[Rfam]
RNA: Bacterial small signal recognition particle RNA
Organism: Paenarthrobacter sp. YJN-5
RNA sequence: GACGGCCCCUCAUGUGGCGUCAUCCUGUUGAACUCCCCCAGGACCGGAAGGUAGCAAGGGUAGAUGGGCUCUGGCGGGUGCAUGAGGGGUCUCUCAU
Numbered sequence: 001g002a003c004g005g006c007c008c009c010u011c012a013u014g015u016g017g018c019g020u021c022a023u024c025c026u027g028u029u030g031a032a033c034u035c036c037c038c039c040a041g042g043a044c045c046g047g048a049a050g051g052u053a054g055c056a057a058g059g060g061u062a063g064a065u066g067g068g069c070u071c072u073g074g075c076g077g078g079u080g081c082a083u084g085a086g087g088g089g090u091c092u093c094u095c096a097u
Stems, first nucleotide, its partner, number of pairs: 004091011015078001018076005024068006035060003043052003
Dot-bracket structure: ...((((((((((((..(((((.((((((.....(((.....(((....))).....)))..))))))...))))).)..)))))))))))......